[Rfam]
RNA sequence: UGCACAGAUGAUGAUUAUCAAGAGGGACUUAAUACUGAAAAGUAUGAUGCUUUCUUUGUUCUGAUAUGC
Numbered sequence: 001u002g003c004a005c006a007g008a009u010g011a012u013g014a015u016u017a018u019c020a021a022g023a024g025g026g027a028c029u030u031a032a033u034a035c036u037g038a039a040a041a042g043u044a045u046g047a048u049g050c051u052u053u054c055u056u057u058g059u060u061c062u063g064a065u066a067u068g069c
Stems, first nucleotide, its partner, number of pairs: 002069003006065001
RNA: Small nucleolar RNA SNORD82
Organism: Scyliorhinus torazame